The record is a 209-nucleotide RNA sequence from Sorghum bicolor, which matches "MIR6217 microRNA precursor family" in Rfam. The source organism's lineage runs through Eukaryota, Euphyllophyta, commelinids, Poaceae and Sorghum.

[Rfam]
RNA sequence: UGGCUACAAAAUAACUUAUUUUAUAGCCACUUUGAGUUACGAUAAUUACUAUAUUAAUUUACAAGAUUAUAGUAACUCCUUACUAAGUGGUUUACUCCCCAUGUGUUAUAGUAACUCAACUAUCGUAAAUAUGUAUACAUAUUAUCGUAAAUUAAUAUAUAAAAUUAUCGUAAAUGGAGGUGGCUACAGAAUAACAUAUUUUGUAGCUA
Numbered sequence: 001u002g003g004c005u006a007c008a009a010a011a012u013a014a015c016u017u018a019u020u021u022u023a024u025a026g027c028c029a030c031u032u033u034g035a036g037u038u039a040c041g042a043u044a045a046u047u048a049c050u051a052u053a054u055u056a057a058u059u060u061a062c063a064a065g066a067u068u069a070u071a072g073u074a075a076c077u078c079c080u081u082a083c084u085a086a087g088u089g090g091u092u093u094a095c096u097c098c099c100c101a102u103g104u105g106u107u108a109u110a111g112u113a114a115c116u117c118a119a120c121u122a123u124c125g126u127a128a129a130u131a132u133g134u135a136u137a138c139a140u141a142u143u144a145u146c147g148u149a150a151a152u153u154a155a156u157a158u159a160u161a162a163a164a165u166u167a168u169c170g171u172a173a174a175u176g177g178a179g180g181u182g183g184c185u186a187c188a189g190a191a192u193a194a195c196a197u198a199u200u201u202u203g204u205a206g207c208u209a
Base pairs, nucleotide, nucleotide: 001209002208003207004206005205006204007203008202009201010200011199012198013197016194017193018192019191020190021189022188024186025185026184027183028182029181030180031179032178033177037173038172039171040170041169042168043167044166045165046164047163050159051158052157053156054155055154056153057152058151059150060149061148062147065146066145067144069142070141071140072138073137074136080128081127082126083125087123088122089121090120091119092118093113094112095111096110
A search with the family's covariance model found it, with a score of 182 bits. Gene Ontology terms of the family: RISC complex and miRNA-mediated post-transcriptional gene silencing. Rfam 15.1 lists 2,266 matches to the family in 13 species. The family's consensus secondary structure was predicted with RNAalifold.